Annotation: Pyrrolysine insertion sequence mttB: a 100-nucleotide sequence from Selenihalanaerobacter shriftii. Rfam 15.1 lists 416 matches to the family in 326 species.

RNA sequence: AUGAGUGAUGCUAAGCUUCCAGAUGUGCAAGCAGGUUAUGAAAAAGCGAUGACUACUCUAUUAGCAGGUAUGUCAGGUGCUAACUUUAUUCAUGAUUCAG
Numbered sequence: 001a002u003g004a005g006u007g008a009u010g011c012u013a014a015g016c017u018u019c020c021a022g023a024u025g026u027g028c029a030a031g032c033a034g035g036u037u038a039u040g041a042a043a044a045a046g047c048g049a050u051g052a053c054u055a056c057u058c059u060a061u062u063a064g065c066a067g068g069u070a071u072g073u074c075a076g077g078u079g080c081u082a083a084c085u086u087u088a089u090u091c092a093u094g095a096u097u098c099a100g
Stems, first nucleotide, its partner, number of pairs: 003012001025032001033062002077098001079096001
Rfam links the family to the GO term pyrrolysine incorporation.